[Rfam]
RNA sequence: UGUGAUGUGGGAGUUUGCGUGAGGGGGCUACGAUCGUGCAUUUUUUGCACUAUUUGCCCUGGGAAGGUCUGAGAUGAUGCCGCCUUGCGAGGAGGUCCGAGAUGGCCCCGUUCCAAUUAGCGGGACGGGCACAGAGAAACGUCGUGCCUUGCGGUUUUGGUUGCGUAUGAAGCCUAUCUGCCGACGCUCUUCUGCCCGCAUAGUUUCAGGACAUGCUCGCGGCAAGAAUGCCAAAGCUCGAUAUGCAAAGCACCAUUCAUGGGGUGUAACACAAUCCAGACUACUCCCUCACGCA
Number, nucleotide and partner (000 for none) at each position: 001u295002g294003u293004g292005a000006u000007g000008u000009g289010g288011g287012a000013g000014u249015u248016u247017g246018c245019g244020u243021g000022a060023g059024g058025g057026g000027g000028c000029u000030a000031c000032g000033a000034u000035c000036g050037u049038g048039c047040a046041u000042u000043u000044u000045u000046u040047g039048c038049a037050c036051u000052a000053u000054u000055u000056g000057c025058c024059c023060u022061g000062g000063g000064a000065a000066g000067g000068u000069c279070u278071g277072a000073g275074a000075u000076g000077a000078u224079g223080c222081c221082g000083c000084c000085u000086u000087g000088c000089g000090a000091g000092g000093a000094g108095g107096u000097c105098c104099g000100a000101g000102a000103u000104g098105g097106c000107c095108c094109c000110g000111u000112u124113c123114c122115a000116a000117u000118u000119a000120g000121c000122g114123g113124g112125a000126c219127g218128g217129g216130c215131a214132c000133a000134g000135a000136g000137a000138a000139a000140c000141g000142u000143c000144g000145u000146g000147c000148c000149u000150u000151g000152c000153g000154g000155u000156u000157u000158u000159g000160g000161u000162u000163g000164c000165g000166u000167a000168u000169g000170a000171a000172g000173c000174c000175u000176a000177u000178c000179u000180g000181c000182c000183g000184a000185c000186g000187c000188u000189c000190u000191u000192c000193u000194g000195c000196c000197c000198g000199c000200a000201u000202a000203g000204u000205u000206u000207c000208a000209g000210g000211a000212c000213a000214u131215g130216c129217u128218c127219g126220c000221g081222g080223c079224a078225a000226g000227a000228a000229u000230g000231c000232c000233a000234a000235a000236g000237c000238u000239c000240g000241a000242u000243a020244u019245g018246c017247a016248a015249a014250g267251c266252a265253c264254c263255a000256u261257u000258c000259a000260u000261g256262g000263g254264g253265u252266g251267u250268a000269a000270c000271a000272c000273a000274a000275u073276c000277c071278a070279g069280a000281c000282u000283a000284c000285u000286c000287c011288c010289u009290c000291a000292c004293g003294c002295a001